[Rfam]
Rfam assigns this 54-nucleotide sequence from Pseudorhodobacter sp. to the family "terC RNA". NCBI's taxonomy places the organism under Bacteria, Pseudomonadati, Pseudomonadota, Alphaproteobacteria, Pseudorhodobacter. It scores 56 bits against the family's covariance model. Rfam classes the family as a cis-regulatory element.
RNA sequence: GGUGCGGACCGGGCCCCUCUGACGACGCUAUUGUCGUGAUGUCGGACCGCAUCG
Numbered sequence: 001g002g003u004g005c006g007g008a009c010c011g012g013g014c015c016c017c018u019c020u021g022a023c024g025a026c027g028c029u030a031u032u033g034u035c036g037u038g039a040u041g042u043c044g045g046a047c048c049g050c051a052u053c054g
Base pairs, nucleotide, nucleotide: 006048007047009045010044011043012042022037023036024035025034026033027032